[Rfam]
RNA sequence: AAGCAAAGAAAGAGAUAAGACUCGGAUUUCCUUUCAGGACAUUAUGGAUGCCAUUGGAGUUUCCGAUGCU
Numbered sequence: 001a002a003g004c005a006a007a008g009a010a011a012g013a014g015a016u017a018a019g020a021c022u023c024g025g026a027u028u029u030c031c032u033u034u035c036a037g038g039a040c041a042u043u044a045u046g047g048a049u050g051c052c053a054u055u056g057g058a059g060u061u062u063c064c065g066a067u068g069c070u
Base pairs, nucleotide, nucleotide: 002070003069004068005067
RNA: Small nucleolar RNA snoR60